The family of this 186-nucleotide RNA from Carboxydocella thermautotrophica is "Lysine riboswitch aptamer". The match comes from Rfam's covariance-model search (121 bits). About the family: Riboswitches are metabolite binding domains within certain messenger RNAs that serve as precision sensors for their corresponding targets.
RNA sequence: GGAUGAGUCAGAGGUCGCGGGAUUCAUGAGUAACCUGACGGAGAGGGCAGAACUCGAGGAGGUCAGGGGAAAGGGGAGACCGCCGAAGUGACAAUAGAUCUGCGCUAUUGUUGCUGGGACCGGGCAGAAGAUGUCCGGGACUGUCAUUAGGAAAUCCCCGUUUCCUAAUGGAGCACUGACUCAUUU
Numbered sequence: 001g002g003a004u005g006a007g008u009c010a011g012a013g014g015u016c017g018c019g020g021g022a023u024u025c026a027u028g029a030g031u032a033a034c035c036u037g038a039c040g041g042a043g044a045g046g047g048c049a050g051a052a053c054u055c056g057a058g059g060a061g062g063u064c065a066g067g068g069g070a071a072a073g074g075g076g077a078g079a080c081c082g083c084c085g086a087a088g089u090g091a092c093a094a095u096a097g098a099u100c101u102g103c104g105c106u107a108u109u110g111u112u113g114c115u116g117g118g119a120c121c122g123g124g125c126a127g128a129a130g131a132u133g134u135c136c137g138g139g140a141c142u143g144u145c146a147u148u149a150g151g152a153a154a155u156c157c158c159c160g161u162u163u164c165c166u167a168a169u170g171g172a173g174c175a176c177u178g179a180c181u182c183a184u185u186u
Stems, first nucleotide, its partner, number of pairs: 006181006017083004023077003034067006087115011116142002120138007144171010